A member of the RNA family "transfer-messenger RNA" from Enterococcus hermanniensis, 368 nucleotides long. It scores 214 bits against the family's covariance model. Clan: tRNA clan. Rfam links the family to the GO term RNA catabolic process. The source organism's lineage runs through Bacteria, Bacillati, Bacilli, Lactobacillales and Enterococcus. On this family, see Williams and Bartel, RNA 1996: "Phylogenetic analysis of tmRNA secondary structure".
[Rfam]
RNA sequence: GGGGCUGUUACGGAUUCGACAGGCAUAGUUUGAGCUUGAAUUGCGCUUCGUAGGUUACGUCUACGUGAAAACGUUACAGUUAAAUAUAACUGCUAAAAACAACAAUAACUCUUACGCUUUAGCUGCCUAAAAACAGUUAGCGUAGAUCCUCUCGGUAUCGCCCAUGUGCUCGAGUAAGGGUCCUAUUCUAAGUGGGAUACGUUUCAACUUUCCGUCUGCAAGUUGAAAAAGAGCUUAUCAGACUAGCAAUGUUCGCGGCCAGUCAUGCGGCAGAGAACAAAGCGAAACUUAAAUAGUAUGACUAUGAGCGUAGAUUUUUAGGUGGUCGAUAUGUUUGGACGCGGGUUCGACUCCCGCCAGCUCCAUUA
Number, nucleotide and partner (000 for none) at each position: 001g364002g363003g362004g361005c360006u359007g358008u000009u000010a000011c000012g000013g000014a000015u000016u000017c000018g000019a000020c337021a336022g335023g334024c333025a332026u331027a330028g000029u328030u000031u000032g000033a000034g323035c322036u321037u320038g319039a318040a317041u000042u000043g000044c310045g309046c308047u307048u306049c065050g064051u063052a062053g061054g077055u076056u000057a074058c073059g072060u071061c053062u052063a051064c050065g049066u000067g000068a000069a000070a000071a060072c059073g058074u057075u000076a055077c054078a000079g000080u000081u000082a000083a000084a000085u000086a000087u000088a000089a000090c000091u000092g000093c000094u000095a000096a000097a000098a000099a000100c000101a000102a000103c000104a000105a000106u000107a000108a000109c000110u000111c000112u000113u000114a000115c000116g000117c000118u000119u140120u139121a138122g137123c136124u135125g134126c000127c000128u000129a000130a000131a000132a000133a000134c125135a124136g123137u122138u121139a120140g119141c000142g000143u000144a000145g182146a181147u180148c179149c178150u177151c174152u173153c172154g171155g169156u168157a167158u166159c000160g000161c196162c195163c194164a193165u192166g158167u157168g156169c155170u000171c154172g153173a152174g151175u000176a000177a150178g149179g148180g147181u146182c145183c000184u000185a000186u000187u000188c000189u000190a000191a000192g165193u164194g163195g162196g161197a000198u000199a000200c000201g000202u228203u227204u226205c225206a224207a223208c222209u221210u220211u000212c000213c000214g244215u000216c000217u241218g000219c000220a210221a209222g208223u207224u206225g205226a204227a203228a202229a000230a000231g000232a000233g000234c000235u000236u000237a000238u000239c000240a000241g217242a000243c000244u214245a000246g283247c282248a000249a000250u279251g278252u277253u276254c275255g000256c000257g000258g271259c270260c269261a000262g302263u301264c300265a299266u296267g000268c000269g260270g259271c258272a000273g000274a000275g254276a253277a252278c251279a250280a000281a000282g247283c246284g000285a000286a000287a000288c000289u000290u000291a000292a000293a000294u000295a000296g266297u000298a000299u265300g264301a263302c262303u000304a000305u000306g048307a047308g046309c045310g044311u000312a000313g000314a000315u000316u000317u040318u039319u038320a037321g036322g035323u034324g000325g000326u000327c000328g029329a000330u027331a026332u025333g024334u023335u022336u021337g020338g000339a000340c000341g357342c356343g355344g354345g353346u000347u000348c000349g000350a000351c000352u000353c345354c344355c343356g342357c341358c007359a006360g005361c004362u003363c002364c001365a000366u000367u000368a000